[Rfam]
RNA: Small Cajal body specific RNA 6
RNA sequence: GGUCAAUGAUGACUAGUAAAAGGGCUGACUCCCCAGGUCCCCUCCCUGCAUCCUCACCAUCCCCAGCCGCCUUGCUCCCAUCAGGCUCCAGUAGUGCUUUGAUGGGUAAAAGGGCAGCUGACACUCUGUGAUGUCCCAGGUCUGUGUUCCUUGGCGAGCCCAGGGAGGACACGUGGUUGGCAUCCCACAGCCAGUCUCGAAGGGAUGUGAUUACUGGGAGUGUGGUACCUGUGGUUCUGAUCUGACUUUCAAGCUGAGACC
Numbered sequence: 001g002g003u004c005a006a007u008g009a010u011g012a013c014u015a016g017u018a019a020a021a022g023g024g025c026u027g028a029c030u031c032c033c034c035a036g037g038u039c040c041c042c043u044c045c046c047u048g049c050a051u052c053c054u055c056a057c058c059a060u061c062c063c064c065a066g067c068c069g070c071c072u073u074g075c076u077c078c079c080a081u082c083a084g085g086c087u088c089c090a091g092u093a094g095u096g097c098u099u100u101g102a103u104g105g106g107u108a109a110a111a112g113g114g115c116a117g118c119u120g121a122c123a124c125u126c127u128g129u130g131a132u133g134u135c136c137c138a139g140g141u142c143u144g145u146g147u148u149c150c151u152u153g154g155c156g157a158g159c160c161c162a163g164g165g166a167g168g169a170c171a172c173g174u175g176g177u178u179g180g181c182a183u184c185c186c187a188c189a190g191c192c193a194g195u196c197u198c199g200a201a202g203g204g205a206u207g208u209g210a211u212u213a214c215u216g217g218g219a220g221u222g223u224g225g226u227a228c229c230u231g232u233g234g235u236u237c238u239g240a241u242c243u244g245a246c247u248u249u250c251a252a253g254c255u256g257a258g259a260c261c
Base pairs, nucleotide, nucleotide: 001261002260003259004258034244035243036242037241038240039239042220043219044218045217046216048214060205061204062203063202064120065119066118067117069115070114077106078105079104080103081102082101083100084099085098086096128185130184131183132182133181134180135179143171144170145169147167148166149165150164151163152162153161